[Rfam]
Nucleotides: 295
Base pairs, nucleotide, nucleotide: 001014002013003012004011005010022036023035024034045293046292047291048290049289050288051287055282056281059278063272064271065270066269067268068267069266074265075264076263078261079260080259081258082257083256085254086253088252089251090250091249092248094246098245099244100243101242102241103240104239105238106234107233109232110231111230112229115225116224117223118222120220121219122218124163125162126161127160129158130157131156132155133154135152136151137150138149139148140147141146164170165169172215173214174213175212176211182207183206184205185204190199
Number, partner (000 for none) and nucleotide at each position: 001014u002013u003012c004011u005010g006000u007000g008000g009000c010005u011004g012003g013002a014001a015000a016000g017000a018000g019000u020000c021000a022036c023035c024034u025000g026000g027000c028000u029000u030000c031000u032000g033000c034024a035023g036022g037000g038000a039000a040000a041000c042000a043000c044000u045293g046292a047291g048290u049289u050288u051287g052000g053000g054000a055282u056281c057000g058000c059278u060000u061000g062000a063272g064271c065270c066269c067268a068267g069266g070000a071000g072000u073000u074265c075264u076263g077000g078261g079260c080259u081258g082257c083256a084000c085254u086253g087000c088252g089251c090250u091249a092248u093000g094246c095000c096000g097000a098245g099244u100243a101242g102241g103240u104239g105238u106234c107233c108000g109232c110231a111230c112229u113000a114000a115225g116224g117223c118222c119000a120220g121219c122218a123000u124163c125162a126161a127160u128000a129158u130157g131156g132155u133154g134000a135152g136151c137150c138149u139148c140147g141146g142000g143000g144000a145000g146141c147140u148139g149138g150137g151136g152135c153000a154133c155132a156131c157130c158129a159000g160127g161126u162125u163124g164170c165169c166000u167000a168000a169165g170164g171000a172215g173214g174213g175212g176211u177000g178000a179000a180000c181000c182207g183206g184205c185204c186000c187000a188000g189000g190199u191000c192000a193000g194000a195000a196000a197000c198000a199190g200000a201000g202000c203000a204185g205184g206183u207182c208000a209000a210000a211176a212175c213174u214173c215172c216000c217000c218122u219121g220120c221000c222118g223117g224116u225115c226000a227000g228000c229112a230111g231110u232109g233107g234106g235000a236000u237000c238105a239104c240103g241102c242101c243100u244099g245098u246094g247000a248092a249091u250090a251089g252088c253086c254085a255000c256083u257082g258081c259080a260079g261078c262000g263076u264075a265074g266069c267068c268067u269066g270065g271064g272063c273000a274000a275000c276000a277000c278059a279000c280000a281056g282055a283000g284000a285000c286000g287051c288050a289049g290048g291047u292046u293045c294000c295000u